[Rfam]
RNA sequence: AAUACACCUCGUUAGGUGAGGCUCCUAUACGGAGAUACGCUGCUGCCCAAAAAUGUCCAAAGACGCCAAUGGGUCAACAGGAACGAUCGACAUAAGGUCGUUUUUAAUGUAGCUGGAUGUUAUCCUAUGCCGUAUAGUGCUAAAGCUCAACGAUGGAGGGAACAG
Numbered sequence: 001a002a003u004a005c006a007c008c009u010c011g012u013u014a015g016g017u018g019a020g021g022c023u024c025c026u027a028u029a030c031g032g033a034g035a036u037a038c039g040c041u042g043c044u045g046c047c048c049a050a051a052a053a054u055g056u057c058c059a060a061a062g063a064c065g066c067c068a069a070u071g072g073g074u075c076a077a078c079a080g081g082a083a084c085g086a087u088c089g090a091c092a093u094a095a096g097g098u099c100g101u102u103u104u105u106a107a108u109g110u111a112g113c114u115g116g117a118u119g120u121u122a123u124c125c126u127a128u129g130c131c132g133u134a135u136a137g138u139g140c141u142a143a144a145g146c147u148c149a150a151c152g153a154u155g156g157a158g159g160g161a162a163c164a165g
Stems, first nucleotide, its partner, number of pairs: 007159004011151002013095001015147003020141003025137008039113005045074005054065004080104004086098003115125003
The record is a 165-nucleotide RNA sequence from Desulfuribacillus alkaliarsenatis, which matches "M-box riboswitch aptamer (ykoK leader)" in Rfam. NCBI's taxonomy places the organism under Bacteria, Bacillati, Desulfuribacillia, Desulfuribacillaceae, Desulfuribacillus. Gene Ontology terms of the family: response to magnesium ion and regulation of gene expression.